[Rfam]
RNA sequence: AGAGGCCCUCCGUGGCCGGGGCGGGAUGCUUGCCUCAUCGCCACGGUGACGAAGCAAGCAUUCCACCAGGCCACUCACGCUGUCCGC
Numbered sequence: 001a002g003a004g005g006c007c008c009u010c011c012g013u014g015g016c017c018g019g020g021g022c023g024g025g026a027u028g029c030u031u032g033c034c035u036c037a038u039c040g041c042c043a044c045g046g047u048g049a050c051g052a053a054g055c056a057a058g059c060a061u062u063c064c065a066c067c068a069g070g071c072c073a074c075u076c077a078c079g080c081u082g083u084c085c086g087c
Stems, first nucleotide, its partner, number of pairs: 004084003012074006020067002023064011038049004
mir-9195 microRNA precursor family: an 87-nucleotide RNA sequence from Cnephaeus nilssonii. Rfam links the family to the GO terms miRNA-mediated post-transcriptional gene silencing and RISC complex. The family has 3 seed sequences and 438 matches in Rfam 15.1. The source organism's lineage runs through Eukaryota, Metazoa, Gnathostomata, Theria and Cnephaeus.